[Rfam]
RNA sequence: UGUAUGUUGGCUGCAACGGAGUGCUUCGCGCACGGGCCGGAUGGACGC
Numbered sequence: 001u002g003u004a005u006g007u008u009g010g011c012u013g014c015a016a017c018g019g020a021g022u023g024c025u026u027c028g029c030g031c032a033c034g035g036g037c038c039g040g041a042u043g044g045a046c047g048c
Stems, first nucleotide, its partner, number of pairs: 008039005021033004
Source information
Shown here is a 48-nucleotide sequence, a member of the family "ssnA RNA". By type it is a cis-regulatory element.